[Rfam]
RNA sequence: UAUCUCUCAGCUCCCUUAAUGACACUCUGAGUGUGGCUGGCGUAUUUUCAGAGAGGGAGAGGAAGGUGCUCCUAAUGCACAACAGACUGGCUCACAGUGGCCACUCUGUUCCUAGAAGUGCAACAGCU
Numbered sequence: 001u002a003u004c005u006c007u008c009a010g011c012u013c014c015c016u017u018a019a020u021g022a023c024a025c026u027c028u029g030a031g032u033g034u035g036g037c038u039g040g041c042g043u044a045u046u047u048u049c050a051g052a053g054a055g056g057g058a059g060a061g062g063a064a065g066g067u068g069c070u071c072c073u074a075a076u077g078c079a080c081a082a083c084a085g086a087c088u089g090g091c092u093c094a095c096a097g098u099g100g101c102c103a104c105u106c107u108g109u110u111c112c113u114a115g116a117a118g119u120g121c122a123a124c125a126g127c128u
Base pairs, nucleotide, nucleotide: 003060004059005058006057007056008055011053012052013051018038020036022034023033024032025031069118070117072115073114075113077111084107085106086105088103089102090101091100092099
RNA: Small nucleolar RNA SNORA64/SNORA10 family
Organism: Physeter macrocephalus